The record is a 77-nucleotide sequence from Brugia malayi, which matches "mir-5882 microRNA precursor family" in Rfam. The sequence is in the family's curated seed alignment. The source organism's lineage runs through Eukaryota, Eumetazoa, Bilateria, Spiruromorpha and Brugia.
[Rfam]
RNA sequence: UGUCAUGAAUAUGCACUGUCCUGAUUACCCACAGCAUAUCUUGUCGUGGGCAACCAGAAUAAUGCAUAGUUAUGACA
Numbered sequence: 001u002g003u004c005a006u007g008a009a010u011a012u013g014c015a016c017u018g019u020c021c022u023g024a025u026u027a028c029c030c031a032c033a034g035c036a037u038a039u040c041u042u043g044u045c046g047u048g049g050g051c052a053a054c055c056a057g058a059a060u061a062a063u064g065c066a067u068a069g070u071u072a073u074g075a076c077a
Stems, first nucleotide, its partner, number of pairs: 001077008010068006017061003021057003025053002028050005034044003